The family of this 164-nucleotide sequence from Nocardia mexicana is "c-di-AMP riboswitch aptamer (ydaO/yuaA leader)". The organism belongs to Nocardia, within Bacteria.

RNA sequence: AUCGAGUCGCCGCCUAAUCGGAGGUCGGGUGGGCAGCCCGAUCGCCGAGCCGGGGACCCAUGUUUGUGGGGUGAAUCCCCUUCGGCCACACGGCCGGUGGGGUAGGGCCGAUCUUCCCGGCCCGAACCCGUCAGCUAACCCGGUCGGCGGUGGGCAGGAAGAAA
Numbered sequence: 001a002u003c004g005a006g007u008c009g010c011c012g013c014c015u016a017a018u019c020g021g022a023g024g025u026c027g028g029g030u031g032g033g034c035a036g037c038c039c040g041a042u043c044g045c046c047g048a049g050c051c052g053g054g055g056a057c058c059c060a061u062g063u064u065u066g067u068g069g070g071g072u073g074a075a076u077c078c079c080c081u082u083c084g085g086c087c088a089c090a091c092g093g094c095c096g097g098u099g100g101g102g103u104a105g106g107g108c109c110g111a112u113c114u115u116c117c118c119g120g121c122c123c124g125a126a127c128c129c130g131u132c133a134g135c136u137a138a139c140c141c142g143g144u145c146g147g148c149g150g151u152g153g154g155c156a157g158g159a160a161g162a163a164a
Base pairs, nucleotide, nucleotide: 011149012148013147014146018048019047020046049144050143051142052141053140054139059068060067069129070128071127077102078101079100080099105123106122107121108120